[Rfam]
RNA: Manganese Mn2+ riboswitch aptamer (yybP-ykoY)
RNA sequence: UCACCCGUCAUUGGGGAGUAGCCGCCUCGCAUCGCCACGAUGCAGGGCCUGCGUCAACACACUUGGCCGCCACGGCCAUGGCGCAGGCAGCUGAUCCAGCCUGGCAAGACCUUUGACCGCGCGGACCCGGCACGACCGGCGGGACCGUGUGGUCAUCCGUCUGCU
Numbered sequence: 001u002c003a004c005c006c007g008u009c010a011u012u013g014g015g016g017a018g019u020a021g022c023c024g025c026c027u028c029g030c031a032u033c034g035c036c037a038c039g040a041u042g043c044a045g046g047g048c049c050u051g052c053g054u055c056a057a058c059a060c061a062c063u064u065g066g067c068c069g070c071c072a073c074g075g076c077c078a079u080g081g082c083g084c085a086g087g088c089a090g091c092u093g094a095u096c097c098a099g100c101c102u103g104g105c106a107a108g109a110c111c112u113u114u115g116a117c118c119g120c121g122c123g124g125a126c127c128c129g130g131c132a133c134g135a136c137c138g139g140c141g142g143g144a145c146c147g148u149g150u151g152g153u154c155a156u157c158c159g160u161c162u163g164c165u
Stems, first nucleotide, its partner, number of pairs: 025046003047088010064078005